[Rfam]
Nucleotides: 148
Stems, first nucleotide, its partner, number of pairs: 028055005034043003105133010
Number, partner (000 for none) and nucleotide at each position: 001000u002000a003000a004000a005000u006000a007000a008000u009000a010000a011000c012000a013000u014000u015000u016000g017000u018000a019000c020000c021000g022000g023000a024000g025000a026000c027000a028055g029054u030053a031052g032051g033000u034043g035042c036041c037000a038000u039000u040000u041036g042035g043034c044000u045000u046000a047000a048000u049000u050000u051032c052031c053030u054029g055028c056000c057000g058000a059000g060000g061000u062000c063000a064000u065000g066000c067000g068000a069000u070000a071000u072000a073000g074000a075000u076000u077000a078000u079000c080000u081000u082000g083000u084000c085000a086000u087000u088000u089000g090000a091000c092000g093000u094000u095000a096000a097000u098000u099000c100000u101000u102000a103000u104000u105133g106132c107131c108130c109129u110128c111127g112126u113125g114124u115000c116000u117000u118000c119000c120000u121000a122000a123000a124114g125113u126112g127111c128110g129109a130108g131107g132106g133105c134000a135000u136000u137000u138000u139000a140000u141000a142000u143000g144000u145000c146000u147000u148000u